The record is a 66-nucleotide RNA from Bombyx mori, which matches "mir-2774 microRNA precursor family" in Rfam.
Rfam links the family to the GO terms RISC complex and miRNA-mediated post-transcriptional gene silencing.
A search with the family's covariance model found it, with a score of 56 bits.
The family's consensus secondary structure was predicted with RNAalifold.

RNA sequence: ACAACAUUUGGGAAGUCGGUCUACUGAGCAAUAUCACCCACUCGGUCGAAGAUCUUGCCUUGUCGU
Numbered sequence: 001a002c003a004a005c006a007u008u009u010g011g012g013a014a015g016u017c018g019g020u021c022u023a024c025u026g027a028g029c030a031a032u033a034u035c036a037c038c039c040a041c042u043c044g045g046u047c048g049a050a051g052a053u054c055u056u057g058c059c060u061u062g063u064c065g066u
Stems, first nucleotide, its partner, number of pairs: 004063003010058001012056001015053003020049002023046006
Dot-bracket structure: ...(((...(.(..(((..((.((((((............)))))).)).)))..).)..)))...